[Rfam]
Shown here is a 183-nucleotide sequence from Alteromonas pelagimontana, a member of the family "6S / SsrS RNA". The family's RNA type in Rfam is non-coding RNA gene. The family's consensus secondary structure is taken from published work.
RNA sequence: UGCCUCCUGGGAUGUUUGCCAGUUCAUUCAUGUCCCUGGCCGAUGCUUUAAACCAAGGAAGUUGAUUGCGUUGCUAUUGUGCAAGCUCGGCUCGUACCGAGAAGCCUACGGCAAUGAUGAUGCUUCCGCCCUGAACUUUUCGGUUCACGGGCGAACGAUGAACAGCGGCAUUUUGGGAGGCGC
Numbered sequence: 001u002g003c004c005u006c007c008u009g010g011g012a013u014g015u016u017u018g019c020c021a022g023u024u025c026a027u028u029c030a031u032g033u034c035c036c037u038g039g040c041c042g043a044u045g046c047u048u049u050a051a052a053c054c055a056a057g058g059a060a061g062u063u064g065a066u067u068g069c070g071u072u073g074c075u076a077u078u079g080u081g082c083a084a085g086c087u088c089g090g091c092u093c094g095u096a097c098c099g100a101g102a103a104g105c106c107u108a109c110g111g112c113a114a115u116g117a118u119g120a121u122g123c124u125u126c127c128g129c130c131c132u133g134a135a136c137u138u139u140u141c142g143g144u145u146c147a148c149g150g151g152c153g154a155a156c157g158a159u160g161a162a163c164a165g166c167g168g169c170a171u172u173u174u175g176g177g178a179g180g181c182g183c
Stems, first nucleotide, its partner, number of pairs: 002181014017167003032152004037147003040143002057127003061123002069116007081105002086101005